Shown here is a 108-nucleotide sequence from Parasphingopyxis marina, a member of the family "Rhizobiales sRNA Atu_At1".
A search with the family's covariance model found it, with a score of 108 bits.

Nucleotides: 108
Stems, first nucleotide, its partner, number of pairs: 006107004011023004025102006034093004040068003044064003069082003
Number, partner (000 for none) and nucleotide at each position: 001000c002000g003000a004000c005000g006107a007106g008105c009104c010000g011023u012022g013021u014020c015000a016000a017000u018000c019000g020014g021013a022012c023011g024000c025102g026101g027100c028099a029098g030097g031000g032000a033000u034093g035092g036091u037090g038000a039000a040068c041067g042066c043000a044064c045063g046062g047000g048000u049000u050000u051000u052000u053000c054000c055000g056000a057000u058000u059000u060000c061000c062046c063045c064044g065000c066042g067041c068040g069082g070081c071080c072000g073000a074000c075000g076000a077000a078000u079000u080071g081070g082069c083000a084000g085000a086000c087000g088000a089000g090037c091036a092035c093034c094000c095000a096000a097030c098029c099028u100027g101026u102025c103000c104009g105008g106007c107006u108000c
Rfam 15.1 lists 200 matches to the family in 177 species. A reference for the family is Wilms et al. (2012), "Deep sequencing uncovers numerous small RNAs on all four replicons of the plant pathogen Agrobacterium tumefaciens", RNA Biol. Taxonomically the source falls in Parasphingopyxis (Bacteria, Pseudomonadati, Pseudomonadota, Sphingomonadales). The base pairs follow the family's consensus structure, which was predicted with CMfinder.